This 162-nucleotide RNA sequence from Gossypium hirsutum belongs to the Rfam family "U1 spliceosomal RNA". A reference for the family is Kretzner et al. (1990), "Saccharomyces cerevisiae U1 small nuclear RNA secondary structure contains both universal and yeast-specific domains", Proc Natl Acad Sci U S A. Clan: U1 clan.
Nucleotides: 162
Stems, first nucleotide, its partner, number of pairs: 012120001014118002016048006023042005049089002055083002059079003062075002091115003094111003098107002136161005143154003
Number, partner (000 for none) and nucleotide at each position: 001000g002000u003000a004000c005000a006000u007000a008000c009000c010000u011000g012120g013000a014118c015117g016048g017047a018046g019045u020044c021043g022000a023042u024041c025040g026039g027038u028000g029000a030000u031000c032000a033000g034000a035000a036000a037000a038027g039026c040025u041024g042023a043021u044020g045019g046018c047017u048016u049089a050088g051000a052000u053000a054000a055083g056082c057000a058000a059079c060078u061077u062075c063074c064000a065000u066000u067000g068000c069000a070000c071000c072000u073000g074063g075062g076000a077061a078060g079059g080000a081000c082056g083055c084000g085000u086000g087000c088050c089049u090000a091115a092114g093113g094111u095110c096109u097000c098107c099106u100000c101000g102000a103000a104000g105000u106099a107098g108000g109096a110095g111094a112000g113093u114092u115091u116000a117015c118014g119000a120012c121000a122000u123000a124000a125000u126000u127000u128000g129000u130000g131000g132000c133000a134000g135000u136161u137160g138159a139158g140157g141000c142000c143154u144153g145152c146000g147000a148000u149000c150000g151000a152145g153144c154143g155000g156000c157140c158139c159138u160137c161136g162000u